[Rfam]
RNA: Actinobacteria sRNA Ms_IGR-5
RNA sequence: ACACGAGAAGGGAGGUGGUUCGGCAGAUGUAUGGCAACCGGACGCGUGAGGUGGCUGCGGGCUAGCAGUCCUUCCCCGGGCUCCGCCAGGAGUUCGGUGCCGGCGCUCGCCGGCCCAAUCCCAAGCAGUCACCCGACCCGUGGGCUCGCCGGUACGUCCGGCCGGUUCCCUCUCCGAGGGAAGUCAGCCCACGGGUCGUCUGUU
Numbered sequence: 001a002c003a004c005g006a007g008a009a010g011g012g013a014g015g016u017g018g019u020u021c022g023g024c025a026g027a028u029g030u031a032u033g034g035c036a037a038c039c040g041g042a043c044g045c046g047u048g049a050g051g052u053g054g055c056u057g058c059g060g061g062c063u064a065g066c067a068g069u070c071c072u073u074c075c076c077c078g079g080g081c082u083c084c085g086c087c088a089g090g091a092g093u094u095c096g097g098u099g100c101c102g103g104c105g106c107u108c109g110c111c112g113g114c115c116c117a118a119u120c121c122c123a124a125g126c127a128g129u130c131a132c133c134c135g136a137c138c139c140g141u142g143g144g145c146u147c148g149c150c151g152g153u154a155c156g157u158c159c160g161g162c163c164g165g166u167u168c169c170c171u172c173u174c175c176g177a178g179g180g181a182a183g184u185c186a187g188c189c190c191a192c193g194g195g196u197c198g199u200c201u202g203u204u
Base pairs, nucleotide, nucleotide: 015058016057017056018055019054060115061114062113063112065110066109068108071105073103074102134198135197136196137195138194139193140192141191142190143189144188145187146186148166149165150164151163152162153161